[Rfam]
RNA sequence: UUUAUGAGAACCAUUUGAAUCGAGUAAUGUAAUGAUGUAAAGGGUUCUCGAUG
Numbered sequence: 001u002u003u004a005u006g007a008g009a010a011c012c013a014u015u016u017g018a019a020u021c022g023a024g025u026a027a028u029g030u031a032a033u034g035a036u037g038u039a040a041a042g043g044g045u046u047c048u049c050g051a052u053g
Base pairs, nucleotide, nucleotide: 005050006049007048008047009046010045011044012043014041015040016039017038019036020035021034022033

Annotation: A member of the RNA family "Plastid-ccsA-ndhD-2 3UTR RNA" from Cucumis melo, 53 nucleotides long. Rfam classes the family as a cis-regulatory element. On this family, see Richter et al., Plant Commun 2023: "Retrograde signaling in plants: A critical review focusing on the GUN pathway and beyond". Rfam's curators write: Plastid ccsA-ndhD-2 is a non-coding RNA (ncRNA) recognised in plastids. It was found in the three prime untranslated region (3UTR) of ccsA and ndhD genes, its 3UTR location suggests a role in transcript maturation.